[Rfam]
Nucleotides: 139
Base pairs, nucleotide, nucleotide: 005054007052011043012042014040015039016038017037018036019035071133072132073131075129076128077127078126079125086121087120088119089118090117091116092115
Number, partner (000 for none) and nucleotide at each position: 001000a002000u003000a004000a005054a006000a007052g008000c009000a010000g011043g012042g013000a014040c015039c016038u017037g018036u019035u020000g021000c022000c023000g024000a025000u026000a027000a028000a029000a030000a031000u032000g033000u034000g035019a036018a037017u038016a039015g040014g041000u042012c043011u044000c045000c046000c047000g048000u049000a050000a051000a052007c053000g054005u055000c056000a057000g058000g059000g060000a061000a062000a063000u064000a065000c066000a067000g068000c069000u070000g071133g072132g073131c074000a075129u076128c077127g078126u079125u080000a081000u082000u083000g084000g085000g086121u087120g088119a089118a090117c091116c092115u093000c094000u095000u096000g097000a098000a099000u100000a101000a102000u103000u104000a105000a106000u107000g108000a109000u110000g111000g112000a113000a114000a115092a116091g117090g118089u119088u120087c121086a122000g123000u124000a125079a126078a127077c128076g129075a130000a131073g132072c133071u134000a135000u136000a137000u138000u139000u

The record is a 139-nucleotide sequence from Cynara cardunculus, which matches "Small nucleolar RNA snoR74" in Rfam. It scores 98 bits against the family's covariance model. The literature on the family includes a 2002 paper in Curr Biol by Marker et al., "Experimental RNomics: identification of 140 candidates for small non-messenger RNAs in the plant Arabidopsis thaliana". The family's RNA type in Rfam is H/ACA-box small nucleolar RNA.